RNA: PhotoRC-II RNA
Nucleotides: 096
Base pairs, nucleotide, nucleotide: 013039014038015037016036017035019034020033024055025054026053027052028051061083062082063081064080065079066078067077
Number, partner (000 for none) and nucleotide at each position: 001000u002000a003000a004000u005000c006000c007000u008000u009000g010000u011000a012000a013039c014038a015037c016036g017035c018000c019034u020033g021000a022000c023000c024055g025054a026053g027052a028051c029000u030000a031000a032000a033020c034019a035017g036016c037015g038014u039013g040000u041000a042000u043000a044000a045000a046000c047000a048000a049000c050000a051028g052027u053026c054025u055024c056000u057000c058000a059000u060000a061083c062082c063081a064080a065079c066078u067077c068000u069000g070000g071000a072000g073000g074000g075000u076000a077067g078066a079065g080064u081063u082062g083061g084000a085000a086000u087000a088000u089000u090000u091000u092000a093000c094000c095000u096000a